Small nucleolar RNA SNORD111: an 85-nucleotide RNA from Megalops atlanticus. Rfam classes the family as a C/D-box small nucleolar RNA. Its family is annotated with RNA processing and nucleolus in the Gene Ontology. The literature on the family includes a 2002 paper in Mol Cell Biol by Galardi et al., "Purified box C/D snoRNPs are able to reproduce site-specific 2'-O-methylation of target RNA in vitro". The family has 5 seed sequences and 894 matches in Rfam 15.1. The base pairs follow the family's consensus structure, which was predicted with RNAalifold. The source organism's lineage runs through Eukaryota, Metazoa, Chordata, Elopomorpha and Megalops.
RNA sequence: GUGCUGUAGAAGUGAUGAGUGUUUUCAUGUCUCUUCUCUGACUGAUUCUCUCUGGAGAGAGUGUGUAUACCUCUGAUCUCAGCCC
Numbered sequence: 001g002u003g004c005u006g007u008a009g010a011a012g013u014g015a016u017g018a019g020u021g022u023u024u025u026c027a028u029g030u031c032u033c034u035u036c037u038c039u040g041a042c043u044g045a046u047u048c049u050c051u052c053u054g055g056a057g058a059g060a061g062u063g064u065g066u067a068u069a070c071c072u073c074u075g076a077u078c079u080c081a082g083c084c085c
Stems, first nucleotide, its partner, number of pairs: 001085001003083003